RNA sequence: AUAUACUAUAUGAACUCAUUACUAUAUAGUAUAUAUAUAGUAUAUAUAUACACUAUAUAUACUAUAUAUAAUUCGUGCAUUACUGCUAGUCACCAUGGAUAUUAUAUA
Numbered sequence: 001a002u003a004u005a006c007u008a009u010a011u012g013a014a015c016u017c018a019u020u021a022c023u024a025u026a027u028a029g030u031a032u033a034u035a036u037a038u039a040g041u042a043u044a045u046a047u048a049u050a051c052a053c054u055a056u057a058u059a060u061a062c063u064a065u066a067u068a069u070a071a072u073u074c075g076u077g078c079a080u081u082a083c084u085g086c087u088a089g090u091c092a093c094c095a096u097g098g099a100u101a102u103u104a105u106a107u108a
Stems, first nucleotide, its partner, number of pairs: 006098004012091002017085002023035005037060002040056003066080002069077002
Source information
The family of this 108-nucleotide RNA from Rhinopithecus bieti is "Mitochondrial DNA control region secondary structure A". The literature on the family includes a 2008 paper in Mol Biol Evol by Pereira et al., "Evidence for variable selective pressures at a large secondary structure of the human mitochondrial DNA control region". The base pairs follow the family's consensus structure, which is taken from published work. Taxonomically the source falls in Rhinopithecus (Eukaryota, Craniata, Vertebrata, Sarcopterygii). A search with the family's covariance model found it, with a score of 42 bits.